[Rfam]
RNA sequence: CAUUACUUCAUUGGGGAGUAGCCGCUAUUUGCUGAUGCAAAUAGGUGAUGGUCAACAUAAUUGUUCAACAGAACAUGGUCAUCAUAGCAAAGAACCAAUUCAGCUUUUCAAAAAGCUUUCUUUUGUUGGCAAGACCUUUGAUU
Numbered sequence: 001c002a003u004u005a006c007u008u009c010a011u012u013g014g015g016g017a018g019u020a021g022c023c024g025c026u027a028u029u030u031g032c033u034g035a036u037g038c039a040a041a042u043a044g045g046u047g048a049u050g051g052u053c054a055a056c057a058u059a060a061u062u063g064u065u066c067a068a069c070a071g072a073a074c075a076u077g078g079u080c081a082u083c084a085u086a087g088c089a090a091a092g093a094a095c096c097a098a099u100u101c102a103g104c105u106u107u108u109c110a111a112a113a114a115g116c117u118u119u120c121u122u123u124u125g126u127u128g129g130c131a132a133g134a135c136c137u138u139u140g141a142u143u
Stems, first nucleotide, its partner, number of pairs: 026043003045085010062075005086142001088140005
Annotation
Manganese Mn2+ riboswitch aptamer (yybP-ykoY): a 143-nucleotide RNA sequence from Acinetobacter gerneri. It scores 57 bits against the family's covariance model. From the family's description: This RNA was originally discovered in E. coli during a large scale screen and was named SraF. The family was later found to exist upstream of related families of protein genes in many bacteria, including the the yybP and ykoK genes in B. subtilis. The specific functions of these proteins are unknown, but this structured RNA element may be involved in their genetic regulation as a riboswitch. A reference for the family is Argaman et al. (2001), "Novel small RNA-encoding genes in the intergenic regions of Escherichia coli", Curr Biol.